A member of the RNA family "Group II catalytic intron D1-D4-6" from Paenibacillus popilliae, 229 nucleotides long. A search with the family's covariance model found it, with a score of 97 bits. Gene Ontology term of the family: Group II intron splicing. Pairs were carried over by alignment from the consensus structure. The family has 174 seed sequences and 1,617 matches in Rfam 15.1. Lineage of the source: Bacteria > Bacillati > Paenibacillaceae > Paenibacillus > Paenibacillus popilliae. Group II introns are found in rRNA, tRNA and mRNA of organelles in fungi, plants and protists, and also in mRNA in bacteria.
RNA sequence: GAAUUCCAUCAGGGCAAAGCCUAACCAGCAGUCCUGUAGCUAGUUCUUGAAGGCUAGGCGGUAACGAAUAGCUUUAAGCGUAGAACGGCAAAAUAGCGGGCCGAAAGCGAAAUGCUGAAGUGAUUGGGCCUCGAAAAUACGUGGAGACGGGCCGAUGUAGUUACACAUACAGAAGGCGAAAUCGGUUCAAACGUUAUGGUGAGUUUGGACGGGCAAACCCGGGAGACCC
Number, nucleotide and partner (000 for none) at each position: 001g000002a000003a000004u000005u000006c000007c000008a000009u000010c000011a035012g034013g033014g032015c031016a000017a000018a000019g029020c028021c000022u202023a000024a200025c199026c000027a000028g020029c019030a000031g015032u014033c013034c012035u011036g000037u091038a000039g089040c088041u000042a000043g086044u000045u084046c083047u082048u080049g079050a075051a074052g073053g072054c071055u070056a069057g000058g000059c066060g065061g000062u000063a000064a000065c060066g059067a000068a000069u056070a055071g054072c053073u052074u051075u050076a000077a000078g000079c049080g048081u000082a047083g046084a045085a000086c043087g000088g040089c039090a000091a037092a000093a000094u000095a000096g000097c000098g000099g000100g000101c000102c000103g000104a000105a000106a000107g000108c000109g000110a000111a000112a000113u000114g000115c000116u000117g000118a000119a000120g000121u000122g000123a000124u000125u223126g000127g000128g000129c000130c000131u222132c221133g220134a000135a000136a000137a000138u000139a000140c000141g000142u000143g000144g000145a000146g000147a000148c000149g219150g214151g177152c176153c175154g000155a000156u171157g170158u169159a168160g000161u000162u000163a000164c000165a000166c000167a000168u159169a158170c157171a156172g000173a000174a000175g153176g152177c151178g000179a000180a000181a000182u213183c212184g000185g210186u209187u208188c207189a206190a205191a204192c203193g000194u000195u000196a000197u000198g000199g025200u024201g000202a022203g192204u191205u190206u189207g188208g187209a186210c185211g000212g183213g182214c150215a000216a000217a000218c000219c149220c133221g132222g131223g125224a000225g000226a000227c000228c000229c000